[Rfam]
Rfam assigns this 172-nucleotide RNA sequence from Gottfriedia endophytica to the family "Lysine riboswitch aptamer".
RNA sequence: UCGAAGAAUAGAGGUUGCGAAUUUAAUUAGUAUCUUAGUCUAGACGUGUGGCGUUGGAAUGACUAAGCGAAAGGGAAAUUCGCCGAAAUGGAAUGGAUCCACAAUUCAUUCUGUUGGGACUACAUUUAAUAGGUGUAGGACUGUCGCGUAAUUGCGGGGAGCUAUUGAAGAG
Dot-bracket structure: ......(((((.....((((((((.........(((((((....................)))))))........))))))))...((((((((((((.....))))))))))))((..(((((((.....)))))))..)).(((((....)))))....)))))......
Lineage of the source: Bacteria > Bacillota > Bacilli > Bacillaceae > Gottfriedia.
The match comes from Rfam's covariance-model search (108 bits).